[Rfam]
A member of the RNA family "tRNA" from Hamiltosporidium magnivora, 73 nucleotides long. It scores 66 bits against the family's covariance model. About the family: Transfer RNA (tRNA) molecules are approximately 80 nucleotides in length.
RNA sequence: GGGUUCAUAGCUCAGUGGUUAGAGCUUUCGAUUGCAGAUCGAAUGGUCCGUGGUUCGAAUCCGCGUGGACCCU
Numbered sequence: 001g002g003g004u005u006c007a008u009a010g011c012u013c014a015g016u017g018g019u020u021a022g023a024g025c026u027u028u029c030g031a032u033u034g035c036a037g038a039u040c041g042a043a044u045g046g047u048c049c050g051u052g053g054u055u056c057g058a059a060u061c062c063g064c065g066u067g068g069a070c071c072c073u
Base pairs, nucleotide, nucleotide: 001072002071003070004069005068006067007066010025011024012023013022027043028042029041030040031039049065050064051063052062053061